[Rfam]
RNA: Selenocysteine transfer RNA
Organism: Fictibacillus arsenicus
RNA sequence: GGGGCCAGAUGUGUAGCUGGUGCUUGCCUGGGUCUUCAAAACCUUUUGGGAGGCGCGUGCCGUCUCCGGUGGGUUCGAUUCCCACAUGGUCCC
Dot-bracket structure: ((((((((..(((.(((....))))))..((((.......))))....(((((.........)))))..((((.......))))).)))))))